[Rfam]
RNA sequence: GAUGUUCUUCGGGGUAGGGUGAAAUUCCCAAUCGGCGGUGAUGAAGCAAUUCAAAGUCCGUGAGCGCAAGCUGAUUUGGUGCAAAUCCAAAACCGACAGUGAUAGUCUGGAUGGGAGAAGAACAAA
Dot-bracket structure: ..((((((((......(((.......))).[[((((((.................[[))))..((....))...(((((.......)))))]])).(((.....]]))).......))))))))..